[Rfam]
RNA sequence: UUCGCCGAGGGGCGCUGCGACCCAAGCCGUGCCAUGCACGCGCCACGGGCCAGGCUCGGCGAUCCACCUGUGCAACGGCGCCCGGCAACC
Numbered sequence: 001u002u003c004g005c006c007g008a009g010g011g012g013c014g015c016u017g018c019g020a021c022c023c024a025a026g027c028c029g030u031g032c033c034a035u036g037c038a039c040g041c042g043c044c045a046c047g048g049g050c051c052a053g054g055c056u057c058g059g060c061g062a063u064c065c066a067c068c069u070g071u072g073c074a075a076c077g078g079c080g081c082c083c084g085g086c087a088a089c090c
Stems, first nucleotide, its partner, number of pairs: 002062007021049003026044001
RNA: SAH (S-adenosyl-L-homocysteine) riboswitch aptamer